HNH endonuclease-associated RNA and ORF (HEARO) RNA: a 254-nucleotide RNA sequence from Polaromonas naphthalenivorans. NCBI's taxonomy places the organism under Bacteria, Pseudomonadota, Burkholderiales, Polaromonas, Polaromonas naphthalenivorans. A reference for the family is Weinberg et al. (2009), "Exceptional structured noncoding RNAs revealed by bacterial metagenome analysis", Nature. The match comes from Rfam's covariance-model search (101 bits). The family's consensus secondary structure is taken from published work.

RNA sequence: GUCAACCACCCCACCCUAAAGGAUGGGGCUUGAAAGGUGAAAGCCUUGAAAGCCCAGGUUGACCAGACCCAGAAAGGAAUUUAAAAAACCAAUCUACGUUGCCUACAGGUUAUCGGACCAACGGCAGGAUGCUUCUCCAGUCCUGCCCUCUUGAAGCCGCAUCAGCAGACAAGCUUUGGGUAAGCGCGAAACGGGAUGCGGCAGUUCAUCUAAAGUGAACAGCCGGCAGGCAACAGGGUCGAGGAGAGCGAAGA
Numbered sequence: 001g002u003c004a005a006c007c008a009c010c011c012c013a014c015c016c017u018a019a020a021g022g023a024u025g026g027g028g029c030u031u032g033a034a035a036g037g038u039g040a041a042a043g044c045c046u047u048g049a050a051a052g053c054c055c056a057g058g059u060u061g062a063c064c065a066g067a068c069c070c071a072g073a074a075a076g077g078a079a080u081u082u083a084a085a086a087a088a089c090c091a092a093u094c095u096a097c098g099u100u101g102c103c104u105a106c107a108g109g110u111u112a113u114c115g116g117a118c119c120a121a122c123g124g125c126a127g128g129a130u131g132c133u134u135c136u137c138c139a140g141u142c143c144u145g146c147c148c149u150c151u152u153g154a155a156g157c158c159g160c161a162u163c164a165g166c167a168g169a170c171a172a173g174c175u176u177u178g179g180g181u182a183a184g185c186g187c188g189a190a191a192c193g194g195g196a197u198g199c200g201g202c203a204g205u206u207c208a209u210c211u212a213a214a215g216u217g218a219a220c221a222g223c224c225g226g227c228a229g230g231c232a233a234c235a236g237g238g239u240c241g242a243g244g245a246g247a248g249c250g251a252a253g254a
Stems, first nucleotide, its partner, number of pairs: 001063007010028002012025002015022002029052003066240005071095003098234007106226001108224001113154002123147008133248006156202008